[Rfam]
RNA sequence: GUCAGCGACCCCACCGGUAAACCGGGGGGCUUGUGGGAGACUACCCUGAGUGGUCUUGGCUGCGAGCCCCGAUGCUGACCAGCCCCCGGUGUGCUCGCACACCGGAGCCGUUCAGAAGGAGCGCGAAAAAGCAGACCCUGGAGUGGCUUUUCCAGCUCCCGGCUCUUUAAUUGCUCAGUUAAACAGGUUGAUGGGGUGUCCAAAGCCAGUGCUGAGCAAAGAUCGCCGCUUCUGACACCCGGGCGAGGAAAACAUUAC
Number, nucleotide and partner (000 for none) at each position: 001g079002u078003c077004a076005g075006c074007g073008a000009c000010c029011c028012c026013a000014c000015c000016g023017g022018u000019a000020a000021a000022c017023c016024g000025g000026g012027g000028g011029g010030c000031u000032u000033g000034u000035g000036g000037g000038a000039g000040a000041c000042u000043a000044c000045c000046c000047u000048g000049a000050g000051u000052g000053g000054u000055c000056u000057u000058g000059g000060c000061u000062g000063c000064g000065a000066g000067c000068c000069c000070c000071g000072a000073u007074g006075c005076u004077g003078a002079c001080c000081a000082g244083c243084c242085c241086c000087c104088g103089g102090u101091g100092u000093g000094c000095u000096c000097g000098c000099a000100c091101a090102c089103c088104g087105g000106a000107g000108c000109c000110g238111u237112u235113c234114a233115g232116a231117a230118g229119g000120a000121g000122c000123g000124c000125g000126a000127a000128a000129a000130a000131g000132c000133a168134g167135a000136c000137c162138c161139u000140g159141g158142a157143g156144u155145g000146g000147c000148u252149u251150u250151u249152c248153c247154a000155g144156c143157u142158c141159c140160c000161g138162g137163c000164u000165c000166u000167u134168u133169a000170a000171u219172u218173g217174c216175u215176c214177a213178g212179u211180u000181a000182a000183a210184c209185a000186g207187g206188u205189u204190g201191a000192u000193g000194g000195g000196g000197u000198g000199u000200c000201c190202a000203a000204a189205g188206c187207c186208a000209g184210u183211g179212c178213u177214g176215a175216g174217c173218a172219a171220a000221g000222a000223u000224c000225g000226c000227c000228g000229c118230u117231u116232c115233u114234g113235a112236c000237a111238c110239c000240c000241g085242g084243g083244c082245g000246a000247g153248g152249a151250a150251a149252a148253c000254a000255u000256u000257a000258c000
Rfam assigns this 258-nucleotide sequence from Ktedonobacter racemifer to the family "HNH endonuclease-associated RNA and ORF (HEARO) RNA". The literature on the family includes a 2009 paper in Nature by Weinberg et al., "Exceptional structured noncoding RNAs revealed by bacterial metagenome analysis". The family's consensus secondary structure is taken from published work.